[Rfam]
RNA sequence: UUAAAGUGCAGGUAGAGAUACGCUGUAUACCCACAUUACCGAAUUUGUGUUUAAGUGUCAUGUACUGGCACCGGCUGUGGGGCCGCCGAAAGGCGGUUUUUUGCGUU
Numbered sequence: 001u002u003a004a005a006g007u008g009c010a011g012g013u014a015g016a017g018a019u020a021c022g023c024u025g026u027a028u029a030c031c032c033a034c035a036u037u038a039c040c041g042a043a044u045u046u047g048u049g050u051u052u053a054a055g056u057g058u059c060a061u062g063u064a065c066u067g068g069c070a071c072c073g074g075c076u077g078u079g080g081g082g083c084c085g086c087c088g089a090a091a092g093g094c095g096g097u098u099u100u101u102u103g104c105g106u107u
Base pairs, nucleotide, nucleotide: 007027008026009025010024011023012021013020014019030081031080032079033078034077035076039074040073041072042051043050044049055071056070057069058068059067060066082097083096084095085094086093087092
RNA: DUF3800-I RNA